[Rfam]
RNA sequence: GAUCACAAGAUAUCGACGAGAAAUGGCCUUUGACAGCGUCGAUAGGCAACCGCCCGAUUCGCGGACCCGGUGCCCCAAAGGAAGAUCAGCCCCACAGACCGCCUGCGGGGAAGAGCGAAUA
Number, nucleotide and partner (000 for none) at each position: 001g087002a086003u085004c084005a000006c000007a000008a000009g000010a000011u000012a043013u042014c041015g040016a039017c038018g000019a000020g000021a000022a000023a000024u035025g034026g000027c000028c000029u000030u000031u000032g000033a000034c025035a024036g000037c000038g017039u016040c015041g014042a013043u012044a000045g074046g073047c072048a000049a000050c070051c069052g068053c000054c064055c063056g000057a000058u000059u000060c000061g000062c000063g055064g054065a000066c000067c000068c052069g051070g050071u000072g047073c046074c045075c000076c000077a000078a000079a000080g000081g000082a000083a000084g004085a003086u002087c001088a000089g000090c110091c109092c108093c107094a000095c105096a104097g103098a000099c000100c000101g000102c000103c097104u096105g095106c000107g093108g092109g091110g090111a000112a000113g000114a000115g000116c000117g000118a000119a000120u000121a000

SAM (S-adenosyl methionine) riboswitch aptamer: a 121-nucleotide RNA from Corynebacterium sp. ATCC 6931.
The source organism's lineage runs through Bacteria, Actinomycetota, Actinomycetes, Mycobacteriales and Corynebacterium.
Rfam links the family to the GO terms S-adenosylmethionine metabolic process and regulation of gene expression.
About the family: SAM-IV is a mRNA element that regulates gene expression via direct sensing of S-adenosylmethionine (SAM or AdoMet).
The literature on the family includes a 2008 paper in RNA by Weinberg et al., "The aptamer core of SAM-IV riboswitches mimics the ligand-binding site of SAM-I riboswitches".
It scores 48 bits against the family's covariance model.
Clan: SAM clan.